This 92-nucleotide sequence from Xiphorhynchus elegans belongs to the Rfam family "Tombusvirus 3' UTR region IV". Rfam describes the family as follows. Tomato bushy stunt virus is the prototype member of the Tombusviridae family. In addition to viral proteins p33 and the RNA-dependent RNA polymerase p92, and unknown host factors, RNA signals within the UTRs are necessary for genome replication. This element contains a pseudoknot. It scores 35 bits against the family's covariance model. Gene Ontology term of the family: viral RNA genome replication.

[Rfam]
RNA sequence: AACAGAGACACAGCAUUUCUCCUGCUUUGACAGGGCUGUUGGGGGGGCUGCAAACAAGACCUGACAGACAGGUACAGCCAGUUAUGCAGCCC
Numbered sequence: 001a002a003c004a005g006a007g008a009c010a011c012a013g014c015a016u017u018u019c020u021c022c023u024g025c026u027u028u029g030a031c032a033g034g035g036c037u038g039u040u041g042g043g044g045g046g047g048c049u050g051c052a053a054a055c056a057a058g059a060c061c062u063g064a065c066a067g068a069c070a071g072g073u074a075c076a077g078c079c080a081g082u083u084a085u086g087c088a089g090c091c092c
Stems, first nucleotide, its partner, number of pairs: 011050004016046006023032002033092003060072004077087001079086002